[Rfam]
RNA sequence: AGGGUGUGCUCAGAGCAGGGAGCCCAGAGGAUGGCUCCUCUGUUUACAACACACCCAACAGGAAUCUGGGGCCAUUGUGAUGAAGGGGCACAACAUUUGUGCCUUCUCUGGGAGCAAGUGCCCUACAGGU
Numbered sequence: 001a002g003g004g005u006g007u008g009c010u011c012a013g014a015g016c017a018g019g020g021a022g023c024c025c026a027g028a029g030g031a032u033g034g035c036u037c038c039u040c041u042g043u044u045u046a047c048a049a050c051a052c053a054c055c056c057a058a059c060a061g062g063a064a065u066c067u068g069g070g071g072c073c074a075u076u077g078u079g080a081u082g083a084a085g086g087g088g089c090a091c092a093a094c095a096u097u098u099g100u101g102c103c104u105u106c107u108c109u110g111g112g113a114g115c116a117a118g119u120g121c122c123c124u125a126c127a128g129g130u
Base pairs, nucleotide, nucleotide: 002056003055004054005053006052007051008050013045014044015043016042017041018040019039020038022035023034024033069123070122071121072120076116077115078114081112085105086104087103089101090100091099092098093097
RNA: Small nucleolar RNA SNORA11